[Rfam]
Nucleotides: 168
Stems, first nucleotide, its partner, number of pairs: 026037003039081010056071005088168001
Number, partner (000 for none) and nucleotide at each position: 001000a002000c003000g004000c005000u006000c007000g008000u009000c010000a011000u012000u013000g014000g015000g016000g017000a018000g019000u020000a021000g022000c023000c024000g025000c026037u027036c028035u029000u030000c031000u032000u033000c034000u035028a036027g037026a038000g039081g040080u041079a042078c043077a044076u045075g046074u047073c048072a049000a050000c051000a052000c053000a054000c055000u056071u057070g058069c059068a060067a061000g062000u063000u064000c065000a066000c067060u068059u069058g070057c071056a072048u073047g074046g075045c076044a077043u078042g079041u080040g081039c082000a083000g084000c085000g086000c087000a088168u089000a090000g091000c092000c093000u094000g095000g096000c097000a098000a099000g100000a101000c102000c103000u104000u105000u106000g107000a108000c109000u110000a111000c112000a113000c114000c115000a116000u117000c118000c119000c120000c121000g122000g123000a124000a125000u126000g127000g128000c129000c130000g131000g132000a133000g134000g135000g136000g137000u138000g139000g140000c141000g142000u143000a144000g145000u146000c147000a148000a149000u150000c151000g152000u153000c154000c155000u156000a157000a158000a159000u160000c161000c162000g163000g164000c165000c166000a167000g168088g
This 168-nucleotide sequence from Alcaligenaceae bacterium 429 belongs to the Rfam family "Manganese Mn2+ riboswitch aptamer (yybP-ykoY)". Taxonomically the source falls in Alcaligenaceae (Bacteria, Pseudomonadati, Betaproteobacteria, Burkholderiales).